[Rfam]
RNA sequence: UUAAAAAGAAUAUAUUCUUUGCGUAUAAUUUAGGGAAUACGGCCCAAAGUUUCUACCAGACCACCGUAAAUGGUCUGACUACGCAGAUAAGUAACAUAUAG
Numbered sequence: 001u002u003a004a005a006a007a008g009a010a011u012a013u014a015u016u017c018u019u020u021g022c023g024u025a026u027a028a029u030u031u032a033g034g035g036a037a038u039a040c041g042g043c044c045c046a047a048a049g050u051u052u053c054u055a056c057c058a059g060a061c062c063a064c065c066g067u068a069a070a071u072g073g074u075c076u077g078a079c080u081a082c083g084c085a086g087a088u089a090a091g092u093a094a095c096a097u098a099u100a101g
Base pairs, nucleotide, nucleotide: 018087019086020085021084022083023082024081025080029048030047031046033045034044035043057077058076059075060074061073062072063071
This 101-nucleotide RNA from Ornithinibacillus halotolerans belongs to the Rfam family "Purine riboswitch aptamer". The source organism's lineage runs through Bacteria, Bacillota, Caryophanales, Bacillaceae and Ornithinibacillus. Rfam links the family to the GO term purine nucleobase biosynthetic process.